[Rfam]
RNA sequence: GGCAGUGGUCAGCUUUGCGGGGUCGGCAUUCAGCCUUGAUCACUCGCCGCUGUGCAAACCCAUGCAAAACUGACUACACCU
Numbered sequence: 001g002g003c004a005g006u007g008g009u010c011a012g013c014u015u016u017g018c019g020g021g022g023u024c025g026g027c028a029u030u031c032a033g034c035c036u037u038g039a040u041c042a043c044u045c046g047c048c049g050c051u052g053u054g055c056a057a058a059c060c061c062a063u064g065c066a067a068a069a070c071u072g073a074c075u076a077c078a079c080c081u
Stems, first nucleotide, its partner, number of pairs: 005077008014068006020061002023057001026055004032051003
Rfam assigns this 81-nucleotide RNA sequence from Silurus meridionalis to the family "mir-19 microRNA precursor family". Its Rfam clan is "mir-19 clan". The base pairs follow the family's consensus structure, which was predicted with RNAalifold.